[Rfam]
RNA sequence: UACCGAGGAAAACCUCGGCAAUUAACUGCAGCUGGUUCCUUCAAAAUUCGGCAGUUAACUGCCGAAGAAUAU
Number, nucleotide and partner (000 for none) at each position: 001u000002a000003c000004c000005g000006a000007g000008g000009a000010a000011a000012a000013c067014c000015u065016c064017g063018g062019c061020a060021a000022u058023u057024a056025a055026c054027u053028g052029c051030a000031g000032c000033u000034g000035g000036u000037u000038c000039c000040u000041u000042c000043a000044a000045a000046a000047u000048u000049c000050g000051g029052c028053a027054g026055u025056u024057a023058a022059c000060u020061g019062c018063c017064g016065a015066a000067g013068a000069a000070u000071a000072u000

A member of the RNA family "MIR2629 microRNA precursor family" from Medicago truncatula, 72 nucleotides long. A search with the family's covariance model found it, with a score of 62 bits. Gene Ontology terms of the family: RISC complex and miRNA-mediated post-transcriptional gene silencing. NCBI's taxonomy places the organism under Eukaryota, Streptophytina, Gunneridae, fabids, Medicago. Pairs were carried over by alignment from the consensus structure, which was predicted with RNAalifold.